[Rfam]
RNA: Small nucleolar RNA R16
RNA sequence: GAGGGCAGGCUAUGAUGUAAAUUUCUUAUCCUCACACAGAAUCUAAAGCGUGUAGACUAAUCUCUCUUCUUAUUUACUGAUGCCUCG
Number, nucleotide and partner (000 for none) at each position: 001g000002a000003g085004g084005g083006c082007a081008g000009g000010c000011u000012a000013u000014g000015a000016u000017g000018u000019a000020a000021a000022u000023u000024u000025c000026u000027u000028a000029u000030c000031c000032u000033c000034a000035c000036a000037c000038a000039g000040a000041a000042u000043c000044u000045a000046a000047a000048g000049c000050g000051u000052g000053u000054a000055g000056a000057c000058u000059a000060a000061u000062c000063u000064c000065u000066c000067u000068u000069c000070u000071u000072a000073u000074u000075u000076a000077c000078u000079g000080a000081u007082g006083c005084c004085u003086c000087g000